[Rfam]
RNA: Bacterial RNase P class A
Organism: Methylosinus sp. 3S-1
RNA sequence: UCAGUCGGCUGGAUGGCCGCUGCUCUCACGAGCAGAGGAAAGUCCGGGCUCCACGGAGACACGGCGCCGGAUAAGGUCCGGCGGGGGCGACCCCAGGGAAAGCGCCACAGAAAGCAAACCGCCGCCAUCCUUCGGGCCGGCGGCAAGGGUGAAAGGGUGCGGUAAGAGCGCACCGCUCGGGCGGCGACGUCCGAGGCAUGGCAAGCCCCGCCGGGAGCAAGACCGAAUAGGGGCGAAUUCGGAAGCAGCGAUGUUUCCACGGCCUGUCUCCGGGCCGUCGCCCGGGUUGGUCGCUAGAGGCGGCACGCAAUUGCCGUCCCAGAGGAAUGGCCAUCGCGCGCGGGGAAACCCGCGCCUUACAGAACCCGGCUUACAGGCCGGCUGGCUCG
Numbered sequence: 001u002c003a004g005u006c007g008g009c010u011g012g013a014u015g016g017c018c019g020c021u022g023c024u025c026u027c028a029c030g031a032g033c034a035g036a037g038g039a040a041a042g043u044c045c046g047g048g049c050u051c052c053a054c055g056g057a058g059a060c061a062c063g064g065c066g067c068c069g070g071a072u073a074a075g076g077u078c079c080g081g082c083g084g085g086g087g088c089g090a091c092c093c094c095a096g097g098g099a100a101a102g103c104g105c106c107a108c109a110g111a112a113a114g115c116a117a118a119c120c121g122c123c124g125c126c127a128u129c130c131u132u133c134g135g136g137c138c139g140g141c142g143g144c145a146a147g148g149g150u151g152a153a154a155g156g157g158u159g160c161g162g163u164a165a166g167a168g169c170g171c172a173c174c175g176c177u178c179g180g181g182c183g184g185c186g187a188c189g190u191c192c193g194a195g196g197c198a199u200g201g202c203a204a205g206c207c208c209c210g211c212c213g214g215g216a217g218c219a220a221g222a223c224c225g226a227a228u229a230g231g232g233g234c235g236a237a238u239u240c241g242g243a244a245g246c247a248g249c250g251a252u253g254u255u256u257c258c259a260c261g262g263c264c265u266g267u268c269u270c271c272g273g274g275c276c277g278u279c280g281c282c283c284g285g286g287u288u289g290g291u292c293g294c295u296a297g298a299g300g301c302g303g304c305a306c307g308c309a310a311u312u313g314c315c316g317u318c319c320c321a322g323a324g325g326a327a328u329g330g331c332c333a334u335c336g337c338g339c340g341c342g343g344g345g346a347a348a349c350c351c352g353c354g355c356c357u358u359a360c361a362g363a364a365c366c367c368g369g370c371u372u373a374c375a376g377g378c379c380g381g382c383u384g385g386c387u388c389g
Stems, first nucleotide, its partner, number of pairs: 001385010011374001012335007020035006040372003044369005049217004058269001062213005067081005082096001083094004097208002102206002104202003119148002121144006129136001156174006175197001176195008221292004231283006261276005299318007